Actino-pnp RNA: a 63-nucleotide RNA sequence from Streptomyces sp. ERV7.
A search with the family's covariance model found it, with a score of 66 bits.
The source organism's lineage runs through Bacteria, Bacillati, Actinomycetota, Kitasatosporales and Streptomyces.
By type it is a cis-regulatory element.

[Rfam]
RNA sequence: GCCGGUCCUCGGUAGUGGCCUCCGGGGAGACAACGCCCCCGGAUGCUUCGAUCGAAGACCGGC
Numbered sequence: 001g002c003c004g005g006u007c008c009u010c011g012g013u014a015g016u017g018g019c020c021u022c023c024g025g026g027g028a029g030a031c032a033a034c035g036c037c038c039c040c041g042g043a044u045g046c047u048u049c050g051a052u053c054g055a056a057g058a059c060c061g062g063c
Stems, first nucleotide, its partner, number of pairs: 001063007009055005017047003021043007